[Rfam]
RNA sequence: GGUUCGGGAGCCUCCCGGUGGGACGGGGGGCGAUGAAUUGAACCUGACCCCCUGCUUCGCAAGCGGCGCAUGCCCGUGGCCCGACGGUCCUGC
Numbered sequence: 001g002g003u004u005c006g007g008g009a010g011c012c013u014c015c016c017g018g019u020g021g022g023a024c025g026g027g028g029g030g031c032g033a034u035g036a037a038u039u040g041a042a043c044c045u046g047a048c049c050c051c052c053u054g055c056u057u058c059g060c061a062a063g064c065g066g067c068g069c070a071u072g073c074c075c076g077u078g079g080c081c082c083g084a085c086g087g088u089c090c091u092g093c
Stems, first nucleotide, its partner, number of pairs: 001044005010031008068093003072089001074087003